[Rfam]
RNA sequence: UGGGUGUGCUCAGAGCAGGGGUCUGAAGAAAUGGCUCUUCUGUUUACAACACACCCAACAGGAACCUGGGUUCACUGUGACAAGGGGCACAAAACUUGUGGCCUUCCUAUGAACAAAUACCCAAUAUGU
Dot-bracket structure: .(((((((....(((((((((.((........))..)))))))))....)))))))............((.(...(((..((.(((.(((((...))))).))).....)).)))...).)).......

Rfam assigns this 129-nucleotide RNA sequence from Physeter macrocephalus to the family "Small nucleolar RNA SNORA11". Rfam classes the family as an H/ACA-box small nucleolar RNA. The organism belongs to Physeter, within Eukaryota. The base pairs follow the family's consensus structure, which was predicted with RNAalifold. Its family is annotated with nucleolus and RNA processing in the Gene Ontology. From the family's description: U107 (SNORA11) is a member of the H/ACA class of snoRNAs that guide the sites of modification of uridines to pseudouridines. This snoRNA was identified by RT-PCR from blood cells and its expression confirmed by Northern blot analysis. There is no predicted target for this guide snRNA.